[Rfam]
RNA sequence: UGUGACAGGCAAGCUUUUGGCUCGGGUUAUACCUGAUGCACGCGUAUAAGACGAGCAAAAAGCUUGUUGGUCGGAGG
Numbered sequence: 001u002g003u004g005a006c007a008g009g010c011a012a013g014c015u016u017u018u019g020g021c022u023c024g025g026g027u028u029a030u031a032c033c034u035g036a037u038g039c040a041c042g043c044g045u046a047u048a049a050g051a052c053g054a055g056c057a058a059a060a061a062g063c064u065u066g067u068u069g070g071u072c073g074g075a076g077g
Base pairs, nucleotide, nucleotide: 003073004072005071006070008068009067011065012064013063014062015061016060017059018058020056023053024052027049028048029047030046031045032044
The record is a 77-nucleotide RNA from Sarcophilus harrisii, which matches "mir-208 microRNA precursor family" in Rfam. On this family, see Kloosterman et al., Nucleic Acids Res 2006: "Cloning and expression of new microRNAs from zebrafish". NCBI's taxonomy places the organism under Eukaryota, Opisthokonta, Deuterostomia, Euteleostomi, Sarcophilus. Rfam links the family to the GO terms miRNA-mediated post-transcriptional gene silencing and RISC complex.